[Rfam]
A member of the RNA family "Glycine riboswitch aptamer" from Polaromonas sp. Pch-P, 104 nucleotides long. It scores 59 bits against the family's covariance model. NCBI's taxonomy places the organism under Bacteria, Pseudomonadati, Pseudomonadota, Comamonadaceae, Polaromonas.

RNA sequence: GCGUUCCCUACUGGAGAGAGGCAGCCUUUCACAGGCAGCCCACCGAAGGAGCAAACCCGCAUCGCCGGGUGAAUCUCUCAGGUAAAGUGGACAGCAGGGGCAGC
Numbered sequence: 001g002c003g004u005u006c007c008c009u010a011c012u013g014g015a016g017a018g019a020g021g022c023a024g025c026c027u028u029u030c031a032c033a034g035g036c037a038g039c040c041c042a043c044c045g046a047a048g049g050a051g052c053a054a055a056c057c058c059g060c061a062u063c064g065c066c067g068g069g070u071g072a073a074u075c076u077c078u079c080a081g082g083u084a085a086a087g088u089g090g091a092c093a094g095c096a097g098g099g100g101c102a103g104c
Base pairs, nucleotide, nucleotide: 006099007098008097009096011094012093013092020040021039022038042083043082044081045079046078049077050076051075055070056069057068058067059066